[Rfam]
A member of the RNA family "Nuclear RNase P" from Myriangium duriaei, 350 nucleotides long.
RNA sequence: GUCCUCGCCAACGCUGCGUUUCUUUGCUCACAAACAGACAGACUCGCUCGAUUUCGAGCGGUCUUGUCAUCACAAGCAAAUGAGAAAUUCGGAGAAAUCUUCACCCUUCUGCUAUCCAUUCGCCUUCGGGCAUAUGGUUUUAGUUGCUGCCCGUGAGGGCCCGGCGUGAAUCACGCUCGCAAAUGGCAUCAGAAACUCAGGACGCCAUUCUUUUGGGUGGCGCUCCUAUGGGAGCUGUUGCGAAGAUUGUAUGCCUACUGGGCGAUACUUGAGUGCAAUACGCGGCGUUCUGGAGAUUGUCCUUGUGAUAGUCAAAGGUUCCAUUCGAUUCCGAUUACUCUGGCGGGGAC
Numbered sequence: 001g002u003c004c005u006c007g008c009c010a011a012c013g014c015u016g017c018g019u020u021u022c023u024u025u026g027c028u029c030a031c032a033a034a035c036a037g038a039c040a041g042a043c044u045c046g047c048u049c050g051a052u053u054u055c056g057a058g059c060g061g062u063c064u065u066g067u068c069a070u071c072a073c074a075a076g077c078a079a080a081u082g083a084g085a086a087a088u089u090c091g092g093a094g095a096a097a098u099c100u101u102c103a104c105c106c107u108u109c110u111g112c113u114a115u116c117c118a119u120u121c122g123c124c125u126u127c128g129g130g131c132a133u134a135u136g137g138u139u140u141u142a143g144u145u146g147c148u149g150c151c152c153g154u155g156a157g158g159g160c161c162c163g164g165c166g167u168g169a170a171u172c173a174c175g176c177u178c179g180c181a182a183a184u185g186g187c188a189u190c191a192g193a194a195a196c197u198c199a200g201g202a203c204g205c206c207a208u209u210c211u212u213u214u215g216g217g218u219g220g221c222g223c224u225c226c227u228a229u230g231g232g233a234g235c236u237g238u239u240g241c242g243a244a245g246a247u248u249g250u251a252u253g254c255c256u257a258c259u260g261g262g263c264g265a266u267a268c269u270u271g272a273g274u275g276c277a278a279u280a281c282g283c284g285g286c287g288u289u290c291u292g293g294a295g296a297u298u299g300u301c302c303u304u305g306u307g308a309u310a311g312u313c314a315a316a317g318g319u320u321c322c323a324u325u326c327g328a329u330u331c332c333g334a335u336u337a338c339u340c341u342g343g344c345g346g347g348g349a350c
Stems, first nucleotide, its partner, number of pairs: 001350004008343003013286007023080004037068005042062003090333005099245004149160004163177005179241004185235001199227003287321001